[Rfam]
RNA sequence: GAAAGUAAAGGGGCAGUGCUGAUUUCUUGUUCUGUCAAGAAAUUGGUUAUUGCUCCUUUAC
Numbered sequence: 001g002a003a004a005g006u007a008a009a010g011g012g013g014c015a016g017u018g019c020u021g022a023u024u025u026c027u028u029g030u031u032c033u034g035u036c037a038a039g040a041a042a043u044u045g046g047u048u049a050u051u052g053c054u055c056c057u058u059u060a061c
Stems, first nucleotide, its partner, number of pairs: 007059012022043001024041006
Shown here is a 61-nucleotide sequence from Chenopodium album, a member of the family "Plastid-psbA-4 3UTR RNA". Taxonomically the source falls in Chenopodium (Eukaryota, Streptophyta, Tracheophyta, Euphyllophyta). Plastid psbA-4 is a non-coding RNA (ncRNA) present in plastids. It was identified in inverted repeat sequences in the 3 prime untranslate region (3UTR) of photosystem II quinone-binding protein (psbA).